[Rfam]
RNA sequence: AACCUUCGGGUUACAGUCUGAGUAGUUUGCAGACUGCUGGCUGGUGACUAUAAUAGUCACCAGCCU
Numbered sequence: 001a002a003c004c005u006u007c008g009g010g011u012u013a014c015a016g017u018c019u020g021a022g023u024a025g026u027u028u029g030c031a032g033a034c035u036g037c038u039g040g041c042u043g044g045u046g047a048c049u050a051u052a053a054u055a056g057u058c059a060c061c062a063g064c065c066u
Stems, first nucleotide, its partner, number of pairs: 014036005022030002039065010
The family of this 66-nucleotide RNA from Tatumella ptyseos is "Pseudomonas sRNA P26". From the family's description: This small RNA (sRNA) was computationally identified in the genome of the opportunistic pathogen Pseudomonas aeruginosa and its expression verified by northern blot analysis. P26 is conserved across many Gammaproteobacteria species and appears to be consistently located between the DNA directed RNA polymerase (beta subunit) and 50S ribosomal protein L7/L12 genes. The family's consensus secondary structure was predicted with RNAalifold.